[Rfam]
RNA: RprA RNA
Organism: Serratia proteamaculans
RNA sequence: AUAUUGCUUCAAAUACCUGAUUUAAAGCAAGAUUUCCAAACAAUGUAAUGCCAUACAUGUGAAUUGCUGUGUGUAGUCUUUGCCCGUCUCCUAUGAUGGGCUUUUUUUUAU
Number, nucleotide and partner (000 for none) at each position: 001a000002u000003a021004u020005u019006g000007c000008u000009u000010c000011a000012a000013a000014u000015a000016c000017c000018u000019g005020a004021u003022u000023u000024a000025a000026a000027g000028c000029a000030a000031g000032a046033u045034u000035u043036c000037c000038a000039a000040a000041c000042a000043a035044u000045g033046u032047a000048a000049u000050g000051c000052c000053a000054u000055a000056c000057a000058u000059g000060u000061g000062a000063a000064u000065u073066g072067c071068u000069g000070u000071g067072u066073g065074u000075a000076g000077u000078c000079u000080u000081u000082g101083c100084c099085c098086g097087u096088c095089u000090c000091c000092u000093a000094u000095g088096a087097u086098g085099g084100g083101c082102u000103u000104u000105u000106u000107u000108u000109u000110a000111u000